The record is a 222-nucleotide RNA from Peribacillus cavernae, which matches "Group II catalytic intron D1-D4-3" in Rfam. It scores 47 bits against the family's covariance model.
RNA sequence: AAUAUCGUGAGGUGUUGUCUGAAGGAGAUGCGGACAAUCGAGAGACCCGCAGGCGAAAAGAUAGGCCCUAAUGCAUAAAGUGUGAAGCACGGCGGCGGGAUAAGUUGGCGACUUUUCGAAAAGUGAGGAAGCCCACUCAAACAGGCAUUUUCUUUAGAAGUCAGAACGAGAAAAUGUGACUUAUCACGUGAUGGUGAAGGGCAUGUCUUGAAGGAAAAUGUG
Numbered sequence: 001a002a003u004a005u006c007g008u009g010a011g012g013u014g015u016u017g018u019c020u021g022a023a024g025g026a027g028a029u030g031c032g033g034a035c036a037a038u039c040g041a042g043a044g045a046c047c048c049g050c051a052g053g054c055g056a057a058a059a060g061a062u063a064g065g066c067c068c069u070a071a072u073g074c075a076u077a078a079a080g081u082g083u084g085a086a087g088c089a090c091g092g093c094g095g096c097g098g099g100a101u102a103a104g105u106u107g108g109c110g111a112c113u114u115u116u117c118g119a120a121a122a123g124u125g126a127g128g129a130a131g132c133c134c135a136c137u138c139a140a141a142c143a144g145g146c147a148u149u150u151u152c153u154u155u156a157g158a159a160g161u162c163a164g165a166a167c168g169a170g171a172a173a174a175u176g177u178g179a180c181u182u183a184u185c186a187c188g189u190g191a192u193g194g195u196g197a198a199g200g201g202c203a204u205g206u207c208u209u210g211a212a213g214g215a216a217a218a219u220g221u222g
Base pairs, nucleotide, nucleotide: 001016002015003014004013005012006011046222048220049219054214058209059208060207061206062205064204065202066201067200068199069198088196089195090194095189096188097187099185100184101183102182103181104180105179106163107162108161109160115157
The source organism's lineage runs through Bacteria, Bacillota, Bacilli, Caryophanales and Peribacillus. Rfam describes the family as follows. Group II introns are found in rRNA, tRNA and mRNA of organelles in fungi, plants and protists, and also in mRNA in bacteria.